[Rfam]
RNA: Lysine riboswitch aptamer
RNA sequence: AGAUGGGGUAGAGGAGCGGGUUUUAAGAGUAAGCGCUUGGAGGAUGACAACGAGGAUAAGCGCCGAAAGGAAAACUCGCCGAAGCGGAAGAUGAGUCAAGCGUCUUCUUGCUGGGGUUGCAUUGAAUAAAUGUAACACUGUCACAGCAGAUUGCUGUGGAGAACUACUAACGUU
Numbered sequence: 001a002g003a004u005g006g007g008g009u010a011g012a013g014g015a016g017c018g019g020g021u022u023u024u025a026a027g028a029g030u031a032a033g034c035g036c037u038u039g040g041a042g043g044a045u046g047a048c049a050a051c052g053a054g055g056a057u058a059a060g061c062g063c064c065g066a067a068a069g070g071a072a073a074a075c076u077c078g079c080c081g082a083a084g085c086g087g088a089a090g091a092u093g094a095g096u097c098a099a100g101c102g103u104c105u106u107c108u109u110g111c112u113g114g115g116g117u118u119g120c121a122u123u124g125a126a127u128a129a130a131u132g133u134a135a136c137a138c139u140g141u142c143a144c145a146g147c148a149g150a151u152u153g154c155u156g157u158g159g160a161g162a163a164c165u166a167c168u169a170a171c172g173u174u
Base pairs, nucleotide, nucleotide: 007168008167009166010165011164016079017078018077019076020075021074022073023072024071033063034062035061036060037059038058039057083112084111085110086109087107088106089105090104091103092102093101113139114138116136117135118134119133120132121131122130123129141159142158143157144156145155146154147153